RNA sequence: CCAGACGGCUGGACGGCCGCCUUCCGGAGUGAUCCGGGGGGAGGAAAGUCCGGGCUCCACGGAAAUACGGUGCCGGAUAACGUCCGGCGGGGGCGACCCUAGGGAAAGUGCCACAGAAAGCAAACCGCCCGUUCCCCGUUCGCGGGCAGCGGGCAAGGGUGAAAGGGUGCGGCAAGAGCGCACCGCGCCUCCGGCAACGGAGGCGGCACGGUAAACCCCACCGGGAGCAAGACCAAAUAGGGGCGGCACUGUUCCUCCUCGGAGGGACGAAACGCGUUUCCGCGUCGCCGCCCGGGUCGGUCGCGAGAGGCGUCCGGUAACGGGCGUCCCAGAUGAAUGGCCGUCCACCCUUCCUGGAAGGGGGACAGAACCCGGCUUACAGGCCGUCUGGCGCA
Number, nucleotide and partner (000 for none) at each position: 001c391002c390003a389004g388005a387006c386007g385008g384009c383010u382011g380012g345013a344014c343015g342016g341017c340018c339019g000020c041021c040022u039023u038024c037025c036026g035027g034028a033029g000030u000031g000032a000033u028034c027035c026036g025037g024038g023039g022040g021041g020042a000043g000044g000045a000046a378047a377048g376049u000050c375051c374052g373053g372054g371055c227056u226057c225058c224059a000060c000061g000062g000063a000064a279065a278066u000067a000068c223069g222070g221071u220072g219073c087074c086075g085076g084077a083078u000079a000080a000081c000082g000083u077084c076085c075086g074087g073088c102089g100090g099091g098092g097093g000094c000095g000096a000097c092098c091099c090100u089101a000102g088103g218104g217105a000106a000107a000108g216109u215110g212111c211112c210113a000114c000115a000116g000117a000118a000119a000120g000121c000122a000123a000124a000125c158126c157127g154128c153129c152130c151131g150132u149133u148134c000135c146136c145137c144138g143139u000140u000141c000142g000143c138144g137145g136146g135147c000148a133149g132150c131151g130152g129153g128154c127155a000156a000157g126158g125159g000160u000161g000162a000163a000164a000165g000166g184167g183168u182169g181170c180171g179172g000173c000174a000175a000176g000177a000178g000179c171180g170181c169182a168183c167184c166185g207186c205187g204188c203189c202190u201191c200192c199193g198194g000195c000196a000197a000198c193199g192200g191201a190202g189203g188204c187205g186206g000207c185208a000209c000210g112211g111212u110213a000214a000215a109216c108217c104218c103219c072220a071221c070222c069223g068224g058225g057226a056227g055228c000229a000230a000231g302232a301233c300234c299235a000236a000237a000238u000239a000240g000241g293242g292243g291244c290245g289246g288247c000248a000249c000250u000251g000252u000253u000254c000255c000256u000257c000258c000259u000260c000261g000262g000263a000264g000265g000266g000267a000268c000269g000270a000271a000272a285273c284274g283275c282276g000277u000278u065279u064280c000281c000282g275283c274284g273285u272286c000287g000288c246289c245290g244291c243292c242293c241294g000295g000296g000297u000298c000299g234300g233301u232302c231303g000304c000305g000306a000307g000308a000309g328310g327311c326312g325313u324314c323315c322316g321317g000318u000319a000320a000321c316322g315323g314324g313325c312326g311327u310328c309329c000330c000331a000332g000333a000334u000335g000336a000337a000338u000339g018340g017341c016342c015343g014344u013345c012346c000347a000348c000349c000350c000351u000352u000353c000354c000355u000356g000357g000358a000359a000360g000361g000362g000363g000364g000365a000366c000367a000368g000369a000370a000371c054372c053373c052374g051375g050376c048377u047378u046379a000380c011381a000382g010383g009384c008385c007386g006387u005388c004389u003390g002391g001392c000393g000394c000395a000
Rfam assigns this 395-nucleotide RNA from Magnetospirillum sp. SS-4 to the family "Bacterial RNase P class A". Ribonuclease P (RNase P) is a ubiquitous endoribonuclease, found in archaea, bacteria and eukarya as well as chloroplasts and mitochondria. A search with the family's covariance model found it, with a score of 311 bits. By type it is a ribozyme.